[Rfam]
RNA: Histone 3' UTR stem-loop
RNA sequence: AAAAAGGCUCUUUUAAGAGCCACCCACAUUGUCUGUACAAUCUGGG
Numbered sequence: 001a002a003a004a005a006g007g008c009u010c011u012u013u014u015a016a017g018a019g020c021c022a023c024c025c026a027c028a029u030u031g032u033c034u035g036u037a038c039a040a041u042c043u044g045g046g
Base pairs, nucleotide, nucleotide: 006021007020008019009018010017011016